Nucleotides: 150
Base pairs, nucleotide, nucleotide: 002017003016004015005014006013007012027044028043032061033060034059035058036056047054048053068086069085073104074103075102076101077100078099088097089096090095109129110128111127112126115147116146117145118144119143120142131140132139133138
Number, partner (000 for none) and nucleotide at each position: 001000u002017g003016g004015u005014g006013c007012c008000c009000u010000u011000g012007g013006g014005c015004a016003u017002u018000c019000c020000c021000c022000a023000a024000a025000u026000c027044c028043c029000u030000c031000a032061g033060g034059g035058g036056u037000g038000g039000a040000a041000a042000u043028g044027g045000u046000u047054c048053c049000c050000u051000u052000g053048g054047g055000c056036a057000u058035u059034c060033c061032c062000c063000a064000a065000a066000u067000c068086c069085c070000c071000c072000a073104g074103g075102g076101g077100g078099g079000u080000g081000a082000a083000a084000u085069g086068g087000u088097g089096c090095c091000c092000u093000u094000g095090g096089g097088c098000a099078u100077u101076c102075c103074c104073c105000a106000a107000a108000u109129c110128c111127g112126u113000c114000a115147g116146g117145g118144g119143g120142g121000u122000g123000g124000a125000a126112a127111u128110g129109g130000u131140g132139c133138c134000c135000u136000u137000g138133g139132g140131c141000a142120u143119u144118c145117c146116c147115c148000a149000g150000a
Shown here is a 150-nucleotide sequence from Zonotrichia albicollis, a member of the family "STAXI RNA". The family's consensus secondary structure is taken from published work. The family's RNA type in Rfam is small RNA.